Shown here is an 87-nucleotide RNA sequence from Sulfoacidibacillus thermotolerans, a member of the family "c-di-GMP-I riboswitch aptamer".
Pairs were carried over by alignment from the consensus structure, which is taken from published work.
Its Rfam clan is "c-di-GMP_I riboswitch clan".
RNA sequence: AGUGUUUCAAGGCAAACUAACGGAAACGUUAGGGCGCAAAGCCACGGGUCUAAGGGCAGCGAAGCCUAUGACAGCCGGGUUGCCGCU
Number, nucleotide and partner (000 for none) at each position: 001a000002g000003u000004g000005u000006u000007u000008c000009a000010a000011g000012g037013c036014a000015a000016a000017c032018u031019a030020a029021c028022g027023g000024a000025a000026a000027c022028g021029u020030u019031a018032g017033g000034g000035c000036g013037c012038a000039a000040a081041g080042c079043c078044a000045c077046g076047g075048g072049u071050c070051u000052a000053a000054g000055g066056g065057c064058a000059g000060c000061g000062a000063a000064g057065c056066c055067u000068a000069u000070g050071a049072c048073a000074g000075c047076c046077g045078g043079g042080u041081u040082g000083c000084c000085g000086c000087u000